[Rfam]
RNA sequence: UGGCUAUAAAAUAACUUAUUCUGUAGUCACUUUGAGUUACGAUAAUUACUAUGUUAAUUUACGAGAUUAUAGUAACUCCAUACUAAGCAGUUUACUGUAACGUUAUGGUAAAUAUCUUCAUGUGUUAUAGUAACCCAACUAUCGUAAAUAUGUAUUAACAUUAUCGUAAAUGGAGGUGGCUACGGAAUAACUUAUUUUGUAGCUG
Numbered sequence: 001u002g003g004c005u006a007u008a009a010a011a012u013a014a015c016u017u018a019u020u021c022u023g024u025a026g027u028c029a030c031u032u033u034g035a036g037u038u039a040c041g042a043u044a045a046u047u048a049c050u051a052u053g054u055u056a057a058u059u060u061a062c063g064a065g066a067u068u069a070u071a072g073u074a075a076c077u078c079c080a081u082a083c084u085a086a087g088c089a090g091u092u093u094a095c096u097g098u099a100a101c102g103u104u105a106u107g108g109u110a111a112a113u114a115u116c117u118u119c120a121u122g123u124g125u126u127a128u129a130g131u132a133a134c135c136c137a138a139c140u141a142u143c144g145u146a147a148a149u150a151u152g153u154a155u156u157a158a159c160a161u162u163a164u165c166g167u168a169a170a171u172g173g174a175g176g177u178g179g180c181u182a183c184g185g186a187a188u189a190a191c192u193u194a195u196u197u198u199g200u201a202g203c204u205g
Stems, first nucleotide, its partner, number of pairs: 001205014016190018037169010065159001067157001069155003072151003081146003087142001089140004093132011107117002
RNA: MIR6217 microRNA precursor family
Organism: Miscanthus lutarioriparius